Shown here is a 91-nucleotide sequence from Homo sapiens, a member of the family "mir-559 microRNA precursor family".
Its family is annotated with RISC complex and miRNA-mediated post-transcriptional gene silencing in the Gene Ontology.

[Rfam]
RNA sequence: GCUCCAGUAACAUCUUAAAGUAAAUAUGCACCAAAAUUACUUUUGGUAAAUACAGUUUUGGUGCAUAUUUACUUUAGGAUGUUACUGGAGC
Numbered sequence: 001g002c003u004c005c006a007g008u009a010a011c012a013u014c015u016u017a018a019a020g021u022a023a024a025u026a027u028g029c030a031c032c033a034a035a036a037u038u039a040c041u042u043u044u045g046g047u048a049a050a051u052a053c054a055g056u057u058u059u060g061g062u063g064c065a066u067a068u069u070u071a072c073u074u075u076a077g078g079a080u081g082u083u084a085c086u087g088g089a090g091c
Stems, first nucleotide, its partner, number of pairs: 001091038042050003
Pairs were carried over by alignment from the consensus structure, which was predicted with RNAalifold.